[Rfam]
RNA sequence: CUAUAUACUAACAACAAUGCAUAAAUAAAAAGCUUUGUUUUUGAUGUUAUGUCAAAAAUGAGGCAGCGGCCAGACAACCGUAGAGAUGGUAUCCACAGACUAACAGUUUUUGCAAUCUGUUUGUCUACUAAAUUCUAUCUCACAUUA
Numbered sequence: 001c002u003a004u005a006u007a008c009u010a011a012c013a014a015c016a017a018u019g020c021a022u023a024a025a026u027a028a029a030a031a032g033c034u035u036u037g038u039u040u041u042u043g044a045u046g047u048u049a050u051g052u053c054a055a056a057a058a059u060g061a062g063g064c065a066g067c068g069g070c071c072a073g074a075c076a077a078c079c080g081u082a083g084a085g086a087u088g089g090u091a092u093c094c095a096c097a098g099a100c101u102a103a104c105a106g107u108u109u110u111u112g113c114a115a116u117c118u119g120u121u122u123g124u125c126u127a128c129u130a131a132a133u134u135c136u137a138u139c140u141c142a143c144a145u146u147a
Base pairs, nucleotide, nucleotide: 005047006046009043010042011041013039014038015037016036017035019033020032022031083141084140085139086138087137088136089135091133101123102122103121104119105118106117